[Rfam]
RNA sequence: UUGUUUCACAAUGGUGUCAUAGCAGAAGCAUUUGUGUCGCAACCCCUGUCAGGUAAUACCUGCGAAUUCUGAU
Dot-bracket structure: ............[[.[[...(.(((((((.........)).]].]]...(((((...)))))....))))).)
This 73-nucleotide sequence from Alligator mississippiensis belongs to the Rfam family "Mammalian CPEB3 ribozyme". The family's consensus secondary structure is taken from published work.